[Rfam]
RNA sequence: AAGCAGUACAUGAGAAUUGGAGGAAAUUAAUCCCACUAGCGCAUUACUGGGUUUAAUUUCCUCCAAUAUCUCAUCUACUGUUU
Numbered sequence: 001a002a003g004c005a006g007u008a009c010a011u012g013a014g015a016a017u018u019g020g021a022g023g024a025a026a027u028u029a030a031u032c033c034c035a036c037u038a039g040c041g042c043a044u045u046a047c048u049g050g051g052u053u054u055a056a057u058u059u060c061c062u063c064c065a066a067u068a069u070c071u072c073a074u075c076u077a078c079u080g081u082u083u
Stems, first nucleotide, its partner, number of pairs: 004080005011073004016067006023060008032051004
Background:
The family of this 83-nucleotide sequence from Vitis vinifera is "MIR2275 microRNA precursor family".